Annotation: The record is a 72-nucleotide sequence from Nannospalax galili, which matches "Small nucleolar RNA SNORD83" in Rfam. Rfam links the family to the GO terms nucleolus and RNA processing. The source organism's lineage runs through Eukaryota, Gnathostomata, Euarchontoglires, Spalacidae and Nannospalax. It scores 45 bits against the family's covariance model. The family's consensus secondary structure was predicted with PFOLD. For this family Rfam cites "Characterisation of the U83 and U84 small nucleolar RNAs: two novel 2'-O-ribose methylation guide RNAs that lack complementarities to ribosomal RNAs" (Jady and Kiss, Nucleic Acids Res, 2000).
RNA sequence: GCCAAAUCCAACUUAAAAAGAGUUUGGUUUGUUGCAGUAUUGACUUUUAUCUAUCACCCUUGACUGAUGGCU
Numbered sequence: 001g002c003c004a005a006a007u008c009c010a011a012c013u014u015a016a017a018a019a020g021a022g023u024u025u026g027g028u029u030u031g032u033u034g035c036a037g038u039a040u041u042g043a044c045u046u047u048u049a050u051c052u053a054u055c056a057c058c059c060u061u062g063a064c065u066g067a068u069g070g071c072u
Stems, first nucleotide, its partner, number of pairs: 001071004022035002